[Rfam]
RNA sequence: CCUGUGGAUUAGGUAGUUUCAUGUUGUUGGGCUCGCGCUUCAAACGCAACGACAUCCAACUGCCCGGUCCACUGC
Numbered sequence: 001c002c003u004g005u006g007g008a009u010u011a012g013g014u015a016g017u018u019u020c021a022u023g024u025u026g027u028u029g030g031g032c033u034c035g036c037g038c039u040u041c042a043a044a045c046g047c048a049a050c051g052a053c054a055u056c057c058a059a060c061u062g063c064c065c066g067g068u069c070c071a072c073u074g075c
Stems, first nucleotide, its partner, number of pairs: 004072007012064007022054008031045001
Dot-bracket structure: ...(((((((.(((((((...((((((((.(.............).))))))))...))))))).)))))))...